The family of this 123-nucleotide RNA from Donacobius atricapilla is "Small nucleolar RNA SNORA5". The family's consensus secondary structure was predicted with RNAfold. It is annotated as an H/ACA-box small nucleolar RNA. Gene Ontology terms of the family: RNA processing and nucleolus.
[Rfam]
RNA sequence: UGCAGUCGGGGACAACAGUCUUGGCCUUUGCGAUGGCUGGGGCUGCCUCUGAGGCUGCCAGAGCUCUGUGUGACUAGCUGCCUGCUGAGAUAGAUAGGCAGAUAGAUAGACAGAUAGAUAGAU
Dot-bracket structure: .((((..........(((((((((((........))))))))))).........))))........(.(((......(((((..............)))))........))).).........